[Rfam]
RNA sequence: AGCUGGGUCCUGCGCAACGGCAGGUUAUGAAUCCCGUCAGAUCCGGAAGGAAGCAGCGGCAGUAACUGAAACGUGUGCCGCAGGGAAGCCCAGCUAUC
Number, nucleotide and partner (000 for none) at each position: 001a000002g000003c000004u092005g091006g090007g089008u088009c084010c083011u082012g081013c080014g079015c075016a000017a074018c073019g072020g000021c000022a000023g067024g066025u065026u064027a063028u062029g000030a000031a000032u000033c000034c059035c058036g057037u056038c000039a000040g000041a000042u051043c050044c049045g000046g000047a000048a000049g044050g043051a042052a000053g000054c000055a000056g037057c036058g035059g034060c000061a000062g028063u027064a026065a025066c024067u023068g000069a000070a000071a000072c019073g018074u017075g015076u000077g000078c000079c014080g013081c012082a011083g010084g009085g000086a000087a000088g008089c007090c006091c005092a004093g000094c000095u000096a000097u000098c000
RNA: Bacterial small signal recognition particle RNA
Organism: Geobacteraceae bacterium